The family of this 131-nucleotide RNA from Molossus molossus is "Small nucleolar RNA SNORA63".
The source organism's lineage runs through Eukaryota, Bilateria, Craniata, Sarcopterygii and Molossus.
Its family is annotated with nucleolus and RNA processing in the Gene Ontology.
E3 belongs to the H/ACA class of snoRNAs and is involved in the processing of eukaryotic pre-rRNA and has regions of complementarity to 18S rRNA. E3 is encoded in introns in the gene for protein synthesis initiation factor 4AII.
Pairs were carried over by alignment from the consensus structure, which was predicted with PFOLD.
[Rfam]
RNA sequence: AAGCAGGAUAUAGUUGCAAUGUAGCUGGGAAGUGCUGCAUUGUCUUUGCCUCCUGCUCAAAAUAAACUGUGUCCUUUCUAGCCCUGUUGGCCAUGGUGCUGUAGCUGCCAGGGAUGCAUGGUCUCACACAU
Numbered sequence: 001a002a003g004c005a006g007g008a009u010a011u012a013g014u015u016g017c018a019a020u021g022u023a024g025c026u027g028g029g030a031a032g033u034g035c036u037g038c039a040u041u042g043u044c045u046u047u048g049c050c051u052c053c054u055g056c057u058c059a060a061a062a063u064a065a066a067c068u069g070u071g072u073c074c075u076u077u078c079u080a081g082c083c084c085u086g087u088u089g090g091c092c093a094u095g096g097u098g099c100u101g102u103a104g105c106u107g108c109c110a111g112g113g114a115u116g117c118a119u120g121g122u123c124u125c126a127c128a129c130a131u
Stems, first nucleotide, its partner, number of pairs: 003056005016043010083112004088107004